[Rfam]
Rfam assigns this 102-nucleotide RNA from Caenorhabditis briggsae to the family "mir-36 microRNA precursor family". The base pairs follow the family's consensus structure, which was predicted with WAR. For this family Rfam cites "Dynamic expression of small non-coding RNAs, including novel microRNAs and piRNAs/21U-RNAs, during Caenorhabditis elegans development" (Kato et al., Genome Biol, 2009). The family is grouped with related families in Rfam's "mir-36 clan".
RNA sequence: UCCGAAGGACUGGAUCGGACCUCCGCUGGUUUUUCCCGCGGUGAUAUUCCGAAGCAAGUGGUUAUCACCGGGUGAAAACUGGUAGAGGUCCGAUCCAGUCGU
Numbered sequence: 001u002c003c004g005a006a007g008g009a010c011u012g013g014a015u016c017g018g019a020c021c022u023c024c025g026c027u028g029g030u031u032u033u034u035c036c037c038g039c040g041g042u043g044a045u046a047u048u049c050c051g052a053a054g055c056a057a058g059u060g061g062u063u064a065u066c067a068c069c070g071g072g073u074g075a076a077a078a079c080u081g082g083u084a085g086a087g088g089u090c091c092g093a094u095c096c097a098g099u100c101g102u
Base pairs, nucleotide, nucleotide: 016092017091018090019089020088021087022086025083026082027081028080029079030078031077032076033075034074036072037071039070041068042067043066044065045064046063